The family of this 85-nucleotide sequence from Metallosphaera sedula is "tRNA". The family's consensus secondary structure is taken from published work. NCBI's taxonomy places the organism under Archaea, Thermoprotei, Sulfolobales, Sulfolobaceae, Metallosphaera sedula. Rfam describes the family as follows. Transfer RNA (tRNA) molecules are approximately 80 nucleotides in length. Rfam classes the family as a transfer RNA.
RNA sequence: GCGGGGGUGCCCGAGCUAGGCCAAAGGGGGUGGACUGAGGCUCCACUGGAGUAGUCCUGCGCGGGUUCAAAUCCCGCCCCCCGCA
Numbered sequence: 001g002c003g004g005g006g007g008u009g010c011c012c013g014a015g016c017u018a019g020g021c022c023a024a025a026g027g028g029g030g031u032g033g034a035c036u037g038a039g040g041c042u043c044c045a046c047u048g049g050a051g052u053a054g055u056c057c058u059g060c061g062c063g064g065g066u067u068c069a070a071a072u073c074c075c076g077c078c079c080c081c082c083g084c085a
Stems, first nucleotide, its partner, number of pairs: 001084007010028003030046005061077005